Nucleotides: 047
Base pairs, nucleotide, nucleotide: 001022002021003020004019005018006017011047012046013045014044015043026037027036028035
Number, partner (000 for none) and nucleotide at each position: 001022a002021c003020g004019g005018g006017a007000u008000g009000a010000a011047g012046c013045a014044a015043c016000c017006u018005c019004c020003c021002g022001u023000c024000c025000a026037g027036g028035c029000c030000c031000c032000g033000u034000c035028g036027c037026c038000c039000a040000a041000g042000u043015g044014u045013u046012g047011c